[Rfam]
RNA: ZMP/ZTP riboswitch aptamer (pfl RNA motif)
Organism: Flavonifractor sp. An135
RNA sequence: GACCUAUCAUAUGACUGACGGAUAAUGUGGAGCAUACCACAUGGAGUAUGAUACAGAAAAGCCGACCGUCUGGGCGAAGAAA
Numbered sequence: 001g002a003c004c005u006a007u008c009a010u011a012u013g014a015c016u017g018a019c020g021g022a023u024a025a026u027g028u029g030g031a032g033c034a035u036a037c038c039a040c041a042u043g044g045a046g047u048a049u050g051a052u053a054c055a056g057a058a059a060a061g062c063c064g065a066c067c068g069u070c071u072g073g074g075c076g077a078a079g080a081a082a
Base pairs, nucleotide, nucleotide: 005053006052007051008050009049010048011047012046015043017070018069019068020067021066027040028039029038030037061075062074063073